[Rfam]
RNA sequence: CCUGCCCCUAGAAGCACUGUACGUGUGGCUGCUGUGUCACCGGUGUGUCAGUAGGUGGCAGAGAGGAGACAGGCUGUGCCUAAGCUCAGUGUUCUGACCUUUGAACAGCUGAAUGAUGGUAGCCUGACAUU
Numbered sequence: 001c002c003u004g005c006c007c008c009u010a011g012a013a014g015c016a017c018u019g020u021a022c023g024u025g026u027g028g029c030u031g032c033u034g035u036g037u038c039a040c041c042g043g044u045g046u047g048u049c050a051g052u053a054g055g056u057g058g059c060a061g062a063g064a065g066g067a068g069a070c071a072g073g074c075u076g077u078g079c080c081u082a083a084g085c086u087c088a089g090u091g092u093u094c095u096g097a098c099c100u101u102u103g104a105a106c107a108g109c110u111g112a113a114u115g116a117u118g119g120u121a122g123c124c125u126g127a128c129a130u131u
Stems, first nucleotide, its partner, number of pairs: 002061005007055004014048002019046004025040005068128001070126008084114001086112004090107005

The record is a 131-nucleotide RNA sequence, which matches "Small nucleolar RNA SNORA17" in Rfam. snoRNA ACA 17 belongs to the H/ACA family of snoRNAs and is predicted to guide pseudouridylation of the 28S rRNA at positions U4659 and U4598. The sequence is in the family's curated seed alignment. For this family Rfam cites "Mapping to nucleotide resolution of pseudouridine residues in large subunit ribosomal RNAs from representative eukaryotes, prokaryotes, archaebacteria, mitochondria and chloroplasts" (Ofengand and Bakin, J Mol Biol, 1997).